[Rfam]
Description
Shown here is a 116-nucleotide RNA sequence from Aspergillus niger, a member of the family "U5 spliceosomal RNA". The literature on the family includes a 1997 paper in Nucleic Acids Res by Zwieb, "The uRNA database". Rfam classes the family as a spliceosomal small nuclear RNA. From the family's description: U5 RNA is a component of both types of known spliceosome. The precise function of this molecule is unknown, though it is known that the 5' loop is required for splice site selection and p220 binding, and that both the 3' stem-loop and the Sm site are important for Sm protein binding and cap methylation.

RNA sequence: GAGGAGUGGGACAAACUAGCUCAGAACCCAUUUCUUGCCUUUUACCAGAGAUGGCCGUGGUUUGCCCAAAAGACUCCUCUCAUCAAUCUUUGGAAUCACCCAUCGACACAGCUGUC
Numbered sequence: 001g002a003g004g005a006g007u008g009g010g011a012c013a014a015a016c017u018a019g020c021u022c023a024g025a026a027c028c029c030a031u032u033u034c035u036u037g038c039c040u041u042u043u044a045c046c047a048g049a050g051a052u053g054g055c056c057g058u059g060g061u062u063u064g065c066c067c068a069a070a071a072g073a074c075u076c077c078u079c080u081c082a083u084c085a086a087u088c089u090u091u092g093g094a095a096u097c098a099c100c101c102a103u104c105g106a107c108a109c110a111g112c113u114g115u116c
Base pairs, nucleotide, nucleotide: 003077004076005075006074009067010066012064013063014062015061016060017059018058028054029053030052031051032050033049034048035047097114098113100111